[Rfam]
The family of this 47-nucleotide sequence from Rhizobium etli is "ctRNA". Rfam describes the family as follows. This family represents a group of ctRNAs (or counter-transcribed RNAs) from p42d and related plasmids. ctRNAs are small, highly structured, antisense sequences which are involved in negative regulation. Members of this family are known to bind to the mRNA of repC causing translational repression. This model contains the predicted stem-loop structure followed by a U-rich tract which is proposed to act as a Rho-independent transcriptional terminator.
RNA sequence: AGAAGGGCUUCCACGACGGCGACGUUGAGGGAGCUCUUUUCUUUUGC
Numbered sequence: 001a002g003a004a005g006g007g008c009u010u011c012c013a014c015g016a017c018g019g020c021g022a023c024g025u026u027g028a029g030g031g032a033g034c035u036c037u038u039u040u041c042u043u044u045u046g047c
Stems, first nucleotide, its partner, number of pairs: 005036008015026004